[Rfam]
RNA: FMN riboswitch aptamer (RFN element)
RNA sequence: GUUAUCCUUCGGGGCAGGGUGAAAUUCCCUACCGGCGGUGUUGCAGCAGUACCGGAUUACCGGACUGCGGCUUAGUCCGUGACCCGGAAUCUGAUUAUCCAGCGUACCAACGCAAGAUCUUCAGGCUCCGGCUGACUUGGUGAGAGUCCGAGACCGACAGUUACAGUCUGGAUGGGAGAAGGAGAAG
Numbered sequence: 001g002u003u004a005u006c007c008u009u010c011g012g013g014g015c016a017g018g019g020u021g022a023a024a025u026u027c028c029c030u031a032c033c034g035g036c037g038g039u040g041u042u043g044c045a046g047c048a049g050u051a052c053c054g055g056a057u058u059a060c061c062g063g064a065c066u067g068c069g070g071c072u073u074a075g076u077c078c079g080u081g082a083c084c085c086g087g088a089a090u091c092u093g094a095u096u097a098u099c100c101a102g103c104g105u106a107c108c109a110a111c112g113c114a115a116g117a118u119c120u121u122c123a124g125g126c127u128c129c130g131g132c133u134g135a136c137u138u139g140g141u142g143a144g145a146g147u148c149c150g151a152g153a154c155c156g157a158c159a160g161u162u163a164c165a166g167u168c169u170g171g172a173u174g175g176g177a178g179a180a181g182g183a184g185a186a187g
Base pairs, nucleotide, nucleotide: 003185005183006182007181008180009179010178017029018028019027031167032166033156034155035080036079037078038077075154076153084131085130086129087128088127136152137151138150139149140148158170159169160168